U5 spliceosomal RNA: a 116-nucleotide RNA sequence from Entosiphon sulcatum. The organism belongs to Entosiphon, within Eukaryota. Rfam describes the family as follows. U5 RNA is a component of both types of known spliceosome. It is annotated as a spliceosomal small nuclear RNA.
RNA sequence: CAGCACCGCCUGCUACUUACAUCGCAUUUAUCUUUCGCCUUUUACUAAAGAUAGCCGUGAGUGAGCAGGCACUGCGGUGCAUUGACCCAAUUUUUGGAGCCCCCUCAAAAGGGCAA
Numbered sequence: 001c002a003g004c005a006c007c008g009c010c011u012g013c014u015a016c017u018u019a020c021a022u023c024g025c026a027u028u029u030a031u032c033u034u035u036c037g038c039c040u041u042u043u044a045c046u047a048a049a050g051a052u053a054g055c056c057g058u059g060a061g062u063g064a065g066c067a068g069g070c071a072c073u074g075c076g077g078u079g080c081a082u083u084g085a086c087c088c089a090a091u092u093u094u095u096g097g098a099g100c101c102c103c104c105u106c107a108a109a110a111g112g113g114c115a116a
Stems, first nucleotide, its partner, number of pairs: 003080004009069005014063006028054008102113004

Rfam links the family to the GO terms spliceosomal tri-snRNP complex assembly and U5 snRNP. Pairs were carried over by alignment from the consensus structure, which is taken from published work.